[Rfam]
RNA sequence: UGUCUCCUCCACCCUUCCAAUUGGUGGAUUUAGCCCCGAGCUGCAAGGCUCGGGGCUUUUUUC
Numbered sequence: 001u002g003u004c005u006c007c008u009c010c011a012c013c014c015u016u017c018c019a020a021u022u023g024g025u026g027g028a029u030u031u032a033g034c035c036c037c038g039a040g041c042u043g044c045a046a047g048g049c050u051c052g053g054g055g056c057u058u059u060u061u062u063c
Stems, first nucleotide, its partner, number of pairs: 008028006033056008
RNA: Betaproteobacteria toxic small RNA
Organism: Variovorax paradoxus